[Rfam]
RNA sequence: UGUUUCAGCAUUGCACCCAGAGUCUGCAACUCGGACAUUGUACCUGGAGCUUGUGUUGUUGUAAUAAACAUGAGA
Numbered sequence: 001u002g003u004u005u006c007a008g009c010a011u012u013g014c015a016c017c018c019a020g021a022g023u024c025u026g027c028a029a030c031u032c033g034g035a036c037a038u039u040g041u042a043c044c045u046g047g048a049g050c051u052u053g054u055g056u057u058g059u060u061g062u063a064a065u066a067a068a069c070a071u072g073a074g075a
Stems, first nucleotide, its partner, number of pairs: 005053001007051003017047004022036005
A member of the RNA family "U1A polyadenylation inhibition element (PIE)", 75 nucleotides long. Rfam 15.1 lists 510 matches to the family in 331 species. The family's RNA type in Rfam is cis-regulatory element. This family represents the U1A polyadenylation inhibition element (PIE). Rfam's curators put it in the seed alignment. For this family Rfam cites "Global and Local Dynamics of the U1A Polyadenylation Inhibition Element (PIE) RNA and PIE RNA-U1A Complexes" (Clerte and Hall, Biochemistry, 2004).